RNA sequence: GGCCCGUUAGCUCAGUUGGUUAGAGCGCUGCACUUUUAUUGAAAAUCUCAGAGGUCGUAGGUUCGAGUCCUACAUGGGCCC
Numbered sequence: 001g002g003c004c005c006g007u008u009a010g011c012u013c014a015g016u017u018g019g020u021u022a023g024a025g026c027g028c029u030g031c032a033c034u035u036u037u038a039u040u041g042a043a044a045a046u047c048u049c050a051g052a053g054g055u056c057g058u059a060g061g062u063u064c065g066a067g068u069c070c071u072a073c074a075u076g077g078g079c080c081c
Stems, first nucleotide, its partner, number of pairs: 001080007010026004028051003057073005
RNA: tRNA
Organism: Sitophilus oryzae